Rfam assigns this 127-nucleotide sequence from Streptococcus pneumoniae to the family "Streptococcus sRNA SpR18". A reference for the family is Mann et al. (2012), "Control of virulence by small RNAs in Streptococcus pneumoniae", PLoS Pathog.

RNA sequence: AUCAACGGUUACAGAGGAUUAAAAACUGUAACUGGGAUUAAAACGGGAACAUUUACUAAAAAGAAUAAAUUGAAUAAUAGUUCCAAGUGGUUUACAUUUGGACAAAAAAUGGCUCUUUGUCAACUGU
Number, nucleotide and partner (000 for none) at each position: 001a000002u000003c000004a000005a000006c034007g033008g032009u031010u030011a029012c028013a027014g026015a000016g000017g000018a000019u000020u000021a000022a000023a000024a000025a000026c014027u013028g012029u011030a010031a009032c008033u007034g006035g000036g121037a120038u000039u000040a000041a000042a000043a000044c000045g116046g115047g000048a000049a000050c000051a066052u065053u064054u063055a000056c000057u000058a000059a000060a000061a000062a000063g054064a053065a052066u051067a000068a000069a000070u000071u000072g000073a000074a000075u000076a000077a000078u000079a000080g103081u102082u000083c101084c100085a099086a098087g097088u096089g095090g000091u000092u000093u000094a000095c089096a088097u087098u086099u085100g084101g083102a081103c080104a000105a000106a000107a000108a000109a000110u000111g000112g000113c000114u000115c046116u045117u000118u000119g000120u037121c036122a000123a000124c000125u000126g000127u000
By type it is a small RNA. The source organism's lineage runs through Bacteria, Bacillota, Lactobacillales, Streptococcus and Streptococcus pneumoniae.